[Rfam]
RNA sequence: CCCCCAAGGGGAAGCGAAGACCCUAUAGAGCUUUACUGCAGGCUGUCGCUGGGACGUGGUCGCUGAUGUGCAGGAUAGGUAGGAGCCGAGACACAGGUACGUGCGCCAGCACGUCACCGAGGCAAGCGUGAAAUACUACCCGUCAGUGACUGCGACCCUCACUCCGGGAGGAGAACACCGGUAGCCGGGCAGUUUGACUGGGGCGGUACGUGCUCGAAAAGAUAUCGAGCGCGCCCAAUGGUCACCUCAUCCGGGUCAGAGCCCCGGAGAAGAGCGCAAGAGCAGAAGGUGGCCUGACAGUGUCUUUCCUAACACGAGACGCUGACGCGAGAGCGUGGUUUAGCGAACGGUCCAGGGUCCUCAAUGGACCCGGGGUACGACAGAAAAGCUACCUUAGGGAUAACAGAGUCGUCACUCGCAAGAGCACAUAUCGACCGAGUGGCUUGCUACCUCGAUGUCGGUUCCCUCCAUCCUGCCCGUGCAGAAGCGGGCAAGGGUGAGGUUGUUCGCCUAUUAAAGGAGGUCGUGAGCUGGGUUUAGACCGUCGUGAGACAGGUCGGCUGCUAUCUAUUGGGGGUGUGA
Numbered sequence: 001c002c003c004c005c006a007a008g009g010g011g012a013a014g015c016g017a018a019g020a021c022c023c024u025a026u027a028g029a030g031c032u033u034u035a036c037u038g039c040a041g042g043c044u045g046u047c048g049c050u051g052g053g054a055c056g057u058g059g060u061c062g063c064u065g066a067u068g069u070g071c072a073g074g075a076u077a078g079g080u081a082g083g084a085g086c087c088g089a090g091a092c093a094c095a096g097g098u099a100c101g102u103g104c105g106c107c108a109g110c111a112c113g114u115c116a117c118c119g120a121g122g123c124a125a126g127c128g129u130g131a132a133a134u135a136c137u138a139c140c141c142g143u144c145a146g147u148g149a150c151u152g153c154g155a156c157c158c159u160c161a162c163u164c165c166g167g168g169a170g171g172a173g174a175a176c177a178c179c180g181g182u183a184g185c186c187g188g189g190c191a192g193u194u195u196g197a198c199u200g201g202g203g204c205g206g207u208a209c210g211u212g213c214u215c216g217a218a219a220a221g222a223u224a225u226c227g228a229g230c231g232c233g234c235c236c237a238a239u240g241g242u243c244a245c246c247u248c249a250u251c252c253g254g255g256u257c258a259g260a261g262c263c264c265c266g267g268a269g270a271a272g273a274g275c276g277c278a279a280g281a282g283c284a285g286a287a288g289g290u291g292g293c294c295u296g297a298c299a300g301u302g303u304c305u306u307u308c309c310u311a312a313c314a315c316g317a318g319a320c321g322c323u324g325a326c327g328c329g330a331g332a333g334c335g336u337g338g339u340u341u342a343g344c345g346a347a348c349g350g351u352c353c354a355g356g357g358u359c360c361u362c363a364a365u366g367g368a369c370c371c372g373g374g375g376u377a378c379g380a381c382a383g384a385a386a387a388g389c390u391a392c393c394u395u396a397g398g399g400a401u402a403a404c405a406g407a408g409u410c411g412u413c414a415c416u417c418g419c420a421a422g423a424g425c426a427c428a429u430a431u432c433g434a435c436c437g438a439g440u441g442g443c444u445u446g447c448u449a450c451c452u453c454g455a456u457g458u459c460g461g462u463u464c465c466c467u468c469c470a471u472c473c474u475g476c477c478c479g480u481g482c483a484g485a486a487g488c489g490g491g492c493a494a495g496g497g498u499g500a501g502g503u504u505g506u507u508c509g510c511c512u513a514u515u516a517a518a519g520g521a522g523g524u525c526g527u528g529a530g531c532u533g534g535g536u537u538u539a540g541a542c543c544g545u546c547g548u549g550a551g552a553c554a555g556g557u558c559g560g561c562u563g564c565u566a567u568c569u570a571u572u573g574g575g576g577g578u579g580u581g582a
Stems, first nucleotide, its partner, number of pairs: 001577007010569003014564002022398004027394002029390005035193004042185007051158003055154014078140005085123003100113005162173004196209001197207003210232006235338002241293006247273002250268006274283002298324009326335001328333001349376001351374003355371005407448003411445001412442007422432002459534001460532004464526001465523005472497002476491005500512004540558004544553003
The family of this 582-nucleotide part of an RNA from Halalkaliarchaeum desulfuricum is "Archaeal large subunit ribosomal RNA". A search with the family's covariance model found it, with a score of 2717 bits. Taxonomically the source falls in Halalkaliarchaeum (Archaea, Methanobacteriati, Halobacteria, Halobacteriales).